The record is an 89-nucleotide sequence from Clostridium sp. SM-530-WT-3G, which matches "Glycine riboswitch aptamer" in Rfam. NCBI's taxonomy places the organism under Bacteria, Bacillati, Clostridia, Clostridiaceae, Clostridium. Pairs were carried over by alignment from the consensus structure.
RNA sequence: AUGAAGGUAGUGGGAGAGAUGAAACUAUAUUUUUAUAGUGGAACACCGAAGAGGUUAAAUCUUUCAGGUAAAAGGACCACUGCUGGACG
Numbered sequence: 001a002u003g004a005a006g007g008u009a010g011u012g013g014g015a016g017a018g019a020u021g022a023a024a025c026u027a028u029a030u031u032u033u034u035a036u037a038g039u040g041g042a043a044c045a046c047c048g049a050a051g052a053g054g055u056u057a058a059a060u061c062u063u064u065c066a067g068g069u070a071a072a073a074g075g076a077c078c079a080c081u082g083c084u085g086g087a088c089g
Stems, first nucleotide, its partner, number of pairs: 006084008020043001045069003048065002052063003